[Rfam]
RNA sequence: AGCACCUAAAAGCGUUUUCUUGUCAGCCCGUUGAAUGCUCUUGAAAAUCGUAGAUGUGUGCCAGAGCAAAGCUUAGUUGCAAGUGAUUCGGCCUAUCUCGAUGGCAGGUAUCCAUAUAGCUGACUACAAAC
Numbered sequence: 001a002g003c004a005c006c007u008a009a010a011a012g013c014g015u016u017u018u019c020u021u022g023u024c025a026g027c028c029c030g031u032u033g034a035a036u037g038c039u040c041u042u043g044a045a046a047a048u049c050g051u052a053g054a055u056g057u058g059u060g061c062c063a064g065a066g067c068a069a070a071g072c073u074u075a076g077u078u079g080c081a082a083g084u085g086a087u088u089c090g091g092c093c094u095a096u097c098u099c100g101a102u103g104g105c106a107g108g109u110a111u112c113c114a115u116a117u118a119g120c121u122g123a124c125u126a127c128a129a130a131c
Base pairs, nucleotide, nucleotide: 002061003060004059005058006056012051013050014049015047016046017045018044019043022038023037025036073123074122075121076120077119083115084114085113086111087110089107091105092104093103
RNA: Small nucleolar RNA psi28S-3316